[Rfam]
RNA: Small nucleolar RNA SNORA53
Organism: Astyanax mexicanus
RNA sequence: CACACGUUCCUUAGAUCCACCUCUGGGGAGACUUCUAGCUCUUGGGCUGCAGCUCCAGACUGGAGUCUCCCAACAGCUUUUCUGGCUGUACAGUUGGAGGUGCUUGAGUCAUUGGCGUGUGAGAGCAGUCUAUCUGCUUUUCAGCUCAGUUACUGCCCUGGCACCCUUGCUGGACUUUACCAGGGCAGGCAAGCUGGAGUGCGGACAAA
Numbered sequence: 001c002a003c004a005c006g007u008u009c010c011u012u013a014g015a016u017c018c019a020c021c022u023c024u025g026g027g028g029a030g031a032c033u034u035c036u037a038g039c040u041c042u043u044g045g046g047c048u049g050c051a052g053c054u055c056c057a058g059a060c061u062g063g064a065g066u067c068u069c070c071c072a073a074c075a076g077c078u079u080u081u082c083u084g085g086c087u088g089u090a091c092a093g094u095u096g097g098a099g100g101u102g103c104u105u106g107a108g109u110c111a112u113u114g115g116c117g118u119g120u121g122a123g124a125g126c127a128g129u130c131u132a133u134c135u136g137c138u139u140u141u142c143a144g145c146u147c148a149g150u151u152a153c154u155g156c157c158c159u160g161g162c163a164c165c166c167u168u169g170c171u172g173g174a175c176u177u178u179a180c181c182a183g184g185g186c187a188g189g190c191a192a193g194c195u196g197g198a199g200u201g202c203g204g205a206c207a208a209a
Stems, first nucleotide, its partner, number of pairs: 002120007010108005018102008026071005034064004040059003044056001046055001073089006134204004141197001143195004153188009163178001165173002